[Rfam]
RNA sequence: UGAGCCUCCUGGCAGGAGGAGCCAUGAGCACGAAGGUGGUUUUCCCAUAGCGAGUUUCCCCCAUUGCACCCUGGGUGUGCUAACCCCUGCCAUUUCCCAGAUGUGGGGAACCCAGUUGCAUCAUUUGUGGCAGCGGGGGCUGUGUUCACGCUCUCCCCUG
Numbered sequence: 001u002g003a004g005c006c007u008c009c010u011g012g013c014a015g016g017a018g019g020a021g022c023c024a025u026g027a028g029c030a031c032g033a034a035g036g037u038g039g040u041u042u043u044c045c046c047a048u049a050g051c052g053a054g055u056u057u058c059c060c061c062c063a064u065u066g067c068a069c070c071c072u073g074g075g076u077g078u079g080c081u082a083a084c085c086c087c088u089g090c091c092a093u094u095u096c097c098c099a100g101a102u103g104u105g106g107g108g109a110a111c112c113c114a115g116u117u118g119c120a121u122c123a124u125u126u127g128u129g130g131c132a133g134c135g136g137g138g139g140c141u142g143u144g145u146u147c148a149c150g151c152u153c154u155c156c157c158c159u160g
Base pairs, nucleotide, nucleotide: 012119013118015045016044017043018042019041021040022039023038024037025036047088050085052084054081056079058077060075061074062073090115094109095108097106098105135159136158137157138156139155142151143150144149
The record is a 160-nucleotide sequence from Galemys pyrenaicus, which matches "U1 spliceosomal RNA" in Rfam. Pairs were carried over by alignment from the consensus structure, which is taken from published work. By type it is a spliceosomal small nuclear RNA. It scores 71 bits against the family's covariance model. Lineage of the source: Eukaryota > Opisthokonta > Dipnotetrapodomorpha > Eutheria > Galemys.